[Rfam]
RNA: NLPC-P60 RNA
RNA sequence: CGGUGCUUGCCUCACCUGACACCGAGUGACCGGAUGGACAGGAUCCGAUCAUUUGUGGGGUAGUCCGCCGAUCCGAUUCACCUACGGAAGGGCGGGCCCGGCCCCUCACCGGAGGU
Numbered sequence: 001c002g003g004u005g006c007u008u009g010c011c012u013c014a015c016c017u018g019a020c021a022c023c024g025a026g027u028g029a030c031c032g033g034a035u036g037g038a039c040a041g042g043a044u045c046c047g048a049u050c051a052u053u054u055g056u057g058g059g060g061u062a063g064u065c066c067g068c069c070g071a072u073c074c075g076a077u078u079c080a081c082c083u084a085c086g087g088a089a090g091g092g093c094g095g096g097c098c099c100g101g102c103c104c105c106u107c108a109c110c111g112g113a114g115g116u
Stems, first nucleotide, its partner, number of pairs: 025053004031047005057105005063097006